A member of the RNA family "c-di-AMP riboswitch aptamer (ydaO/yuaA leader)" from Paenibacillus radicis, 171 nucleotides long. Lineage of the source: Bacteria > Bacillota > Bacilli > Caryophanales > Paenibacillus. This family represents a conserved RNA structure found upstream of the ydaO and yuaA genes in Bacillus subtilis and related genes in other bacteria. The ydaO/yuaA element is thought to act as a genetic 'off' switch for the ydaO and yuaA genes in its native state.
[Rfam]
RNA sequence: UGAAUAGAACAGCCGAAUUUCCGCAAGAAAACGGGGGAACCAUAUCGUUGCCGGAACGUAUUCCGUCAGCAUGGGGUGAAUUUCGGUGAAGCAGUCAUACUUCACUGAAUAGGGCCGCCUUUCCAGGCCCGAAUCCGUCAGCUAACCUCGCAGGCUGUAUGGAACAGGACU
Numbered sequence: 001u002g003a004a005u006a007g008a009a010c011a012g013c014c015g016a017a018u019u020u021c022c023g024c025a026a027g028a029a030a031a032c033g034g035g036g037g038a039a040c041c042a043u044a045u046c047g048u049u050g051c052c053g054g055a056a057c058g059u060a061u062u063c064c065g066u067c068a069g070c071a072u073g074g075g076g077u078g079a080a081u082u083u084c085g086g087u088g089a090a091g092c093a094g095u096c097a098u099a100c101u102u103c104a105c106u107g108a109a110u111a112g113g114g115c116c117g118c119c120u121u122u123c124c125a126g127g128c129c130c131g132a133a134u135c136c137g138u139c140a141g142c143u144a145a146c147c148u149c150g151c152a153g154g155c156u157g158u159a160u161g162g163a164a165c166a167g168g169a170c171u
Stems, first nucleotide, its partner, number of pairs: 011156004018030003032150005041073002074136003082109010112130004